[Rfam]
RNA sequence: GGCUGGUCCGAAGGUAGUGAGCCAUCACAAUUGAUUGUUCACAGUCAGUUACAGGUCGAACUCCUCGUUCAACAAUUCCCCCCUCCUCACUACUGCACUUGACUGGUCUUUU
Number, nucleotide and partner (000 for none) at each position: 001g108002g107003c106004u105005g104006g103007u102008c101009c000010g100011a099012a000013g000014g096015u095016a091017g090018u089019g088020a087021g086022c000023c000024a000025u000026c000027a000028c000029a000030a000031u000032u000033g000034a000035u000036u000037g000038u000039u000040c000041a000042c000043a000044g073045u072046c000047a000048g070049u000050u000051a000052c000053a000054g000055g000056u000057c000058g000059a000060a000061c000062u000063c000064c000065u000066c000067g000068u000069u000070c048071a000072a045073c044074a000075a000076u000077u000078c000079c000080c000081c000082c000083c000084u000085c000086c021087u020088c019089a018090c017091u016092a000093c000094u000095g015096c014097a000098c000099u011100u010101g008102a007103c006104u005105g004106g003107u002108c001109u000110u000111u000112u000